[Rfam]
Rfam assigns this 68-nucleotide sequence from Orthoflavivirus murrayense to the family "General Flavivirus exoribonuclease-resistant RNA element".
RNA sequence: CCGUGUCAGAUCGCGAAAGCGCCACUUCGCCGAGGAGUGCAAUCUGUGAGGCCCCAGGAGGACUGGGU
Number, nucleotide and partner (000 for none) at each position: 001c000002c000003g000004u000005g000006u048007c046008a045009g044010a043011u042012c021013g020014c019015g000016a000017a000018a000019g014020c013021g012022c000023c000024a000025c037026u036027u035028c000029g000030c000031c000032g000033a000034g000035g027036a026037g025038u000039g000040c000041a000042a011043u010044c009045u008046g007047u000048g006049a000050g000051g000052c000053c067054c066055c065056a064057g063058g000059a000060g000061g000062a000063c057064u056065g055066g054067g053068u000